[Rfam]
This 353-nucleotide sequence from Sagittula salina belongs to the Rfam family "Alphaproteobacteria transfer-messenger RNA". The source organism's lineage runs through Bacteria, Pseudomonadota, Alphaproteobacteria, Roseobacteraceae and Sagittula. Its family is annotated with RNA catabolic process in the Gene Ontology. Rfam describes the family as follows. Bacterial tmRNA, also known as 10Sa RNA or SsrA, is named for its dual tRNA and mRNA-like properties. Its role is to liberate the mRNA from a stalled ribosome. To accomplish this part of the tmRNA is used as a reading frame that ends in a translation stop signal. Its Rfam clan is "tRNA clan".
Nucleotides: 353
Base pairs, nucleotide, nucleotide: 040055041054042053043052044051059190060189061188062187063186069183070182071180072179073178074177083169084168087166088165089164093109094108095107096106097105110151111150112149113148114147115146116145191206192205193204194203197216198215200214201213202212319334320333321332322331325350326349327348328347329346330345
Number, partner (000 for none) and nucleotide at each position: 001000c002000c003000c004000c005000u006000u007000u008000u009000c010000a011000c012000c013000g014000c015000c016000u017000c018000g019000g020000a021000c022000u023000a024000c025000c026000c027000c028000u029000a030000u031000a032000u033000u034000c035000g036000u037000c038000u039000c040055g041054u042053u043052c044051c045000c046000u047000u048000c049000g050000g051044g052043g053042g054041a055040c056000u057000a058000u059190g060189g061188g062187c063186a064000u065000a066000a067000a068000c069183g070182c071180g072179c073178a074177u075000g076000u077000a078000a079000u080000a081000a082000a083169c084168g085000g086000a087166u088165c089164g090000g091000a092000c093109c094108c095107g096106g097105g098000g099000g100000c101000g102000g103000u104000a105097c106096c107095c108094g109093g110151c111150g112149g113148c114147u115146c116145c117000a118000c119000c120000a121000u122000a123000u124000a125000u126000c127000c128000c129000g130000u131000c132000g133000u134000u135000g136000g137000g138000g139000g140000a141000u142000c143000u144000u145116g146115g147114g148113g149112c150111c151110g152000a153000a154000a155000c156000a157000g158000g159000a160000u161000c162000g163000a164089c165088g166087a167000a168084c169083g170000c171000g172000u173000a174000a175000a176000g177074a178073u179072g180071u181000a182070g183069c184000u185000u186063u187062g188061u189060c190059c191206c192205g193204g194203u195000g196000a197216g198215a199000u200214a201213c202212c203194a204193c205192c206191g207000u208000u209000a210000u211000c212202g213201g214200u215198u216197c217000a218000c219000a220000u221000u222000g223000c224000a225000u226000a227000a228000u229000u230000g231000c232000c233000a234000a235000c236000g237000a238000c239000a240000a241000u242000c243000a244000u245000g246000c247000u248000c249000c250000g251000g252000u253000a254000g255000c256000a257000c258000u259000g260000g261000c262000c263000g264000c265000g266000u267000a268000a269000g270000c271000g272000g273000u274000u275000g276000g277000u278000a279000a280000c281000a282000c283000c284000g285000a286000a287000a288000c289000u290000u291000a292000a293000g294000c295000c296000c297000u298000u299000a300000u301000g302000c303000u304000u305000u306000g307000c308000a309000g310000c311000g312000u313000a314000a315000g316000g317000c318000g319334g320333g321332g322331c323000c324000c325350g326349u327348c328347g329346g330345a331322g332321c333320c334319u335000g336000g337000c338000a339000a340000c341000a342000g343000a344000a345330u346329c347328c348327g349326a350325c351000a352000c353000c